[Rfam]
RNA sequence: CCACGGAGUGCGUAUAUGGACUCUGUUCGAGGUUGACACUCUGGUGUACUUCCCCGAUAUCAGAUUGCCCCUCGGACAGGGCCCUAUAUGCGCCCCGCGCACUU
Dot-bracket structure: .........(((((((.((.((((((((((((..(.((.((((((((.........)))))))).)).))))))))))))).))..)))))))...........
Numbered sequence: 001c002c003a004c005g006g007a008g009u010g011c012g013u014a015u016a017u018g019g020a021c022u023c024u025g026u027u028c029g030a031g032g033u034u035g036a037c038a039c040u041c042u043g044g045u046g047u048a049c050u051u052c053c054c055c056g057a058u059a060u061c062a063g064a065u066u067g068c069c070c071c072u073c074g075g076a077c078a079g080g081g082c083c084c085u086a087u088a089u090g091c092g093c094c095c096c097g098c099g100c101a102c103u104u
Stems, first nucleotide, its partner, number of pairs: 010093007018084002021081012035069001037067002040064008
The family of this 104-nucleotide RNA from Corynebacterium poyangense is "mraW RNA". Pairs were carried over by alignment from the consensus structure, which is taken from published work. The organism belongs to Corynebacterium, within Bacteria. The family's RNA type in Rfam is cis-regulatory element. It scores 60 bits against the family's covariance model.